Rhizobiales sRNA Atu_C8: a 120-nucleotide RNA sequence from Rhizobium tibeticum. NCBI's taxonomy places the organism under Bacteria, Pseudomonadati, Hyphomicrobiales, Rhizobiaceae, Rhizobium. On this family, see Wilms et al., RNA Biol 2012: "Deep sequencing uncovers numerous small RNAs on all four replicons of the plant pathogen Agrobacterium tumefaciens". The base pairs follow the family's consensus structure, which was predicted with CMfinder. Rfam classes the family as a small RNA.
[Rfam]
RNA sequence: GAAAAUCGCAAUGGUUCUCAUCGUGGUGACAGAGCGCAUGGGCGGGAUGGUUUAGCCGUCCGGCGAAAGCACCCAUGCGCGGUAAGCAGGCUCCUGGCGGGGCCUUUUUUUAUGCCUGAA
Numbered sequence: 001g002a003a004a005a006u007c008g009c010a011a012u013g014g015u016u017c018u019c020a021u022c023g024u025g026g027u028g029a030c031a032g033a034g035c036g037c038a039u040g041g042g043c044g045g046g047a048u049g050g051u052u053u054a055g056c057c058g059u060c061c062g063g064c065g066a067a068a069g070c071a072c073c074c075a076u077g078c079g080c081g082g083u084a085a086g087c088a089g090g091c092u093c094c095u096g097g098c099g100g101g102g103c104c105u106u107u108u109u110u111u112a113u114g115c116c117u118g119a120a
Stems, first nucleotide, its partner, number of pairs: 007028001009026001029117001034080009045061006063070002086106001088105007